RNA: Bacteroidales small SRP
Organism: Pedobacter sp. PACM 27299
RNA sequence: UUGUGACGGGCAAGUAUUACACGAUCAGCUCCUUUUGAACUCCCCCAGGGCGGGAACGAAGCAAGGGUAGAAAGUUGUAGCGAUGCGAUGUAAAGUGCUUGCCCAUUU
Numbered sequence: 001u002u003g004u005g006a007c008g009g010g011c012a013a014g015u016a017u018u019a020c021a022c023g024a025u026c027a028g029c030u031c032c033u034u035u036u037g038a039a040c041u042c043c044c045c046c047a048g049g050g051c052g053g054g055a056a057c058g059a060a061g062c063a064a065g066g067g068u069a070g071a072a073a074g075u076u077g078u079a080g081c082g083a084u085g086c087g088a089u090g091u092a093a094a095g096u097g098c099u100u101g102c103c104c105a106u107u108u
Base pairs, nucleotide, nucleotide: 008104009103010102011101012100013099014098015097017093018092019091020090021089022087023086024084025083